[Rfam]
RNA sequence: CCCUCCGAAAUUUCCCUCAGGAUAGCUGCAACCUGCGUUCAGUUUUAUCAGGUAAAGCGAAUGAUUAGAGGCUGCUGGGAAGUAACUUCCUAGCCCUAUUCUCAAACUUUAAAUGGGUAAGAGACCGGGGUCGCUUAAUUGGACCCUGUGUUGGAAUGAAGGUUGCUAGUGGGCCAGUCCGGGUAAGCUGGACUGGCGAUGCGGGAUGAACCGAACGACUAGUUAAAGCGCCAAACUGCCCGCUCACCUAGAUCCCACAAAAGGUGUUGGUUCAUUUAGACAGCAGGACGGUGGCCAUGGAAGUCGGAAUCCGCUAAGGAGUGUGUAACAACUCACCUGCCGAAUGAACUAGCCCUGAAAAUGGAUGGCGCUGAAGCGAGCGGCUUAUACUAGUCCAUUGGGGAGAGUGCGUUUCCCCAAUGAGUAGGAGGGCGCGGGGCUCGUAGCGCAUCUUCGGCCGUGAGGCGGAGUGAAACGUGCCCCGGUGCAGAU
Numbered sequence: 001c002c003c004u005c006c007g008a009a010a011u012u013u014c015c016c017u018c019a020g021g022a023u024a025g026c027u028g029c030a031a032c033c034u035g036c037g038u039u040c041a042g043u044u045u046u047a048u049c050a051g052g053u054a055a056a057g058c059g060a061a062u063g064a065u066u067a068g069a070g071g072c073u074g075c076u077g078g079g080a081a082g083u084a085a086c087u088u089c090c091u092a093g094c095c096c097u098a099u100u101c102u103c104a105a106a107c108u109u110u111a112a113a114u115g116g117g118u119a120a121g122a123g124a125c126c127g128g129g130g131u132c133g134c135u136u137a138a139u140u141g142g143a144c145c146c147u148g149u150g151u152u153g154g155a156a157u158g159a160a161g162g163u164u165g166c167u168a169g170u171g172g173g174c175c176a177g178u179c180c181g182g183g184u185a186a187g188c189u190g191g192a193c194u195g196g197c198g199a200u201g202c203g204g205g206a207u208g209a210a211c212c213g214a215a216c217g218a219c220u221a222g223u224u225a226a227a228g229c230g231c232c233a234a235a236c237u238g239c240c241c242g243c244u245c246a247c248c249u250a251g252a253u254c255c256c257a258c259a260a261a262a263g264g265u266g267u268u269g270g271u272u273c274a275u276u277u278a279g280a281c282a283g284c285a286g287g288a289c290g291g292u293g294g295c296c297a298u299g300g301a302a303g304u305c306g307g308a309a310u311c312c313g314c315u316a317a318g319g320a321g322u323g324u325g326u327a328a329c330a331a332c333u334c335a336c337c338u339g340c341c342g343a344a345u346g347a348a349c350u351a352g353c354c355c356u357g358a359a360a361a362u363g364g365a366u367g368g369c370g371c372u373g374a375a376g377c378g379a380g381c382g383g384c385u386u387a388u389a390c391u392a393g394u395c396c397a398u399u400g401g402g403g404a405g406a407g408u409g410c411g412u413u414u415c416c417c418c419a420a421u422g423a424g425u426a427g428g429a430g431g432g433c434g435c436g437g438g439g440c441u442c443g444u445a446g447c448g449c450a451u452c453u454u455c456g457g458c459c460g461u462g463a464g465g466c467g468g469a470g471u472g473a474a475a476c477g478u479g480c481c482c483c484g485g486u487g488c489a490g491a492u
Stems, first nucleotide, its partner, number of pairs: 001432006011024001013022003028166006043122007055110001056108002062104003067099001069097003074094006081087001126148007173197010202213003217395005223389001227385003236382001238381001241378003262356003266353010283340005289313003295307002314318001319334001323332002396422009433487001435484006442477003452470001457466003

Eukaryotic large subunit ribosomal RNA: a 492-nucleotide part of an RNA from Ectocarpus siliculosus. NCBI's taxonomy places the organism under Eukaryota, Sar, Phaeophyceae, Ectocarpales, Ectocarpus. Its family is annotated with ribosome and structural constituent of ribosome in the Gene Ontology.